The family of this 106-nucleotide sequence is "drum RNA".
Firmicutes, Bacteroidetes (1 example), Proteobacteria (2 examples), Spirochaetes (2 examples).

RNA sequence: GAACAUUGGAGCGGUAGGCGCUCCGCCAUGCGUUUACCGUGGAGUUCCGAAGGGUUGUGCGUAUUCCUCAAGGCGGAUAGGCGAAAGCCGAAAGAAAACGCACCAU
Numbered sequence: 001g002a003a004c005a006u007u008g009g010a011g012c013g014g015u016a017g018g019c020g021c022u023c024c025g026c027c028a029u030g031c032g033u034u035u036a037c038c039g040u041g042g043a044g045u046u047c048c049g050a051a052g053g054g055u056u057g058u059g060c061g062u063a064u065u066c067c068u069c070a071a072g073g074c075g076g077a078u079a080g081g082c083g084a085a086a087g088c089c090g091a092a093a094g095a096a097a098a099c100g101c102a103c104c105a106u
Stems, first nucleotide, its partner, number of pairs: 001047004011040011023076004059101003080089003